[Rfam]
RNA sequence: UGAUGCCAGGGUCAAAAGGUCUUUCACCCACAUGAGCUUGCUCAUAUGUGGGCGAAAGACCUUGGAACCCGCCCCAAUAUGAGCAUAAAAGUAGGAUGAUAAUCCCACGAUAUGCGAAUAUUGGGUAGAAUUGUGAGAGUGCGUAGCACGUAACAAUUCGGAGGCAUCA
Numbered sequence: 001u002g003a004u005g006c007c008a009g010g011g012u013c014a015a016a017a018g019g020u021c022u023u024u025c026a027c028c029c030a031c032a033u034g035a036g037c038u039u040g041c042u043c044a045u046a047u048g049u050g051g052g053c054g055a056a057a058g059a060c061c062u063u064g065g066a067a068c069c070c071g072c073c074c075c076a077a078u079a080u081g082a083g084c085a086u087a088a089a090a091g092u093a094g095g096a097u098g099a100u101a102a103u104c105c106c107a108c109g110a111u112a113u114g115c116g117a118a119u120a121u122u123g124g125g126u127a128g129a130a131u132u133g134u135g136a137g138a139g140u141g142c143g144u145a146g147c148a149c150g151u152a153a154c155a156a157u158u159c160g161g162a163g164g165c166a167u168c169a
Stems, first nucleotide, its partner, number of pairs: 001169007010069003017062009027052005032045005073125008083115004091108002094105004128159007139149004

A member of the RNA family "Clostridiales-1 RNA" from Eubacterium sp. CAG:603, 169 nucleotides long. It scores 152 bits against the family's covariance model. The organism belongs to Eubacterium, within Bacteria.